[Rfam]
RNA sequence: CGUUUCCCCACUGGAGAGAGGGCGCCGAUCAGGCGCUCCACCGAAGGAGCAAAUCGCGGGGCCGUCCAAGAGGGCCGCGGUGAAUCUCUCAGGUACCACGGACAGCGGGGGCAGG
Numbered sequence: 001c002g003u004u005u006c007c008c009c010a011c012u013g014g015a016g017a018g019a020g021g022g023c024g025c026c027g028a029u030c031a032g033g034c035g036c037u038c039c040a041c042c043g044a045a046g047g048a049g050c051a052a053a054u055c056g057c058g059g060g061g062c063c064g065u066c067c068a069a070g071a072g073g074g075c076c077g078c079g080g081u082g083a084a085u086c087u088c089u090c091a092g093g094u095a096c097c098a099c100g101g102a103c104a105g106c107g108g109g110g111g112c113a114g115g
Stems, first nucleotide, its partner, number of pairs: 006110004011105003020038006040094003043090002047088003053081007
RNA: Glycine riboswitch aptamer